[Rfam]
RNA sequence: GGGGGCAGGUUUGAGGCCAUAGAAGAAGUGCUCAUGGCGCAGCCCUGUCAGCUUCCAAUGAAUCUGUGAAUUCUGCU
Numbered sequence: 001g002g003g004g005g006c007a008g009g010u011u012u013g014a015g016g017c018c019a020u021a022g023a024a025g026a027a028g029u030g031c032u033c034a035u036g037g038c039g040c041a042g043c044c045c046u047g048u049c050a051g052c053u054u055c056c057a058a059u060g061a062a063u064c065u066g067u068g069a070a071u072u073c074u075g076c077u
Base pairs, nucleotide, nucleotide: 013045015044016043017042021077022076024074025073026072027071028040029039030038049066050065051064053062054061055060
A member of the RNA family "Mammalian CPEB3 ribozyme" from Alligator mississippiensis, 77 nucleotides long. The literature on the family includes a 2004 paper in Nature by Teixeira et al., "Autocatalytic RNA cleavage in the human beta-globin pre-mRNA promotes transcription termination". The mammalian CPEB3 ribozyme is a self cleaving RNA located in the second intron of the CPEB3 gene which belongs to a family of genes regulating messenger RNA polyadenylation. The match comes from Rfam's covariance-model search (54 bits).